[Rfam]
RNA: Small nucleolar RNA SNORA73 family
Organism: Phrynocephalus forsythii
RNA sequence: CCAACGGGGAUACCUGGGGAGGUUUGUCCUCUCUCAGCUCUGUCCGUGUGGCACAUGGGAGUGUAGGCCUGUGGGCUCUGUGACAUACAGUCCCCUUCCACGCCGUUGGAGAGCAAGCCGGGCCACCUAGGUCUGCAACCUGCAUAUUCCUAACGCUUCUCCAAGCCUUUGGGCUGUGAUGGAGGAGAUAAACCAUGCAGGAGACAUUU
Numbered sequence: 001c002c003a004a005c006g007g008g009g010a011u012a013c014c015u016g017g018g019g020a021g022g023u024u025u026g027u028c029c030u031c032u033c034u035c036a037g038c039u040c041u042g043u044c045c046g047u048g049u050g051g052c053a054c055a056u057g058g059g060a061g062u063g064u065a066g067g068c069c070u071g072u073g074g075g076c077u078c079u080g081u082g083a084c085a086u087a088c089a090g091u092c093c094c095c096u097u098c099c100a101c102g103c104c105g106u107u108g109g110a111g112a113g114c115a116a117g118c119c120g121g122g123c124c125a126c127c128u129a130g131g132u133c134u135g136c137a138a139c140c141u142g143c144a145u146a147u148u149c150c151u152a153a154c155g156c157u158u159c160u161c162c163a164a165g166c167c168u169u170u171g172g173g174c175u176g177u178g179a180u181g182g183a184g185g186a187g188a189u190a191a192a193c194c195a196u197g198c199a200g201g202a203g204a205c206a207u208u209u
Base pairs, nucleotide, nucleotide: 001109002108003107004106005105006104007103008045009044010043011042012041014037015036016035018032019031020030021029048101049100050099051098057094058093059092060091061088063086064085066081139201140200141199142198143197144196145195156187157186158185159184160183161182165174166173167172